[Rfam]
RNA: tRNA
Organism: Colletotrichum abscissum
RNA sequence: GGUCUGGUGGUGUAGUUGGUUAUCACGUCAGUCUAACAGAUUCGAGGCAACUCGACCUGGGCACACUGAAGGUCUCCGGUUCAAGUCCGGGCUAGAUCA
Dot-bracket structure: (((((((..(((...........))).(((((................................))))).....(((((.......)))))))))))).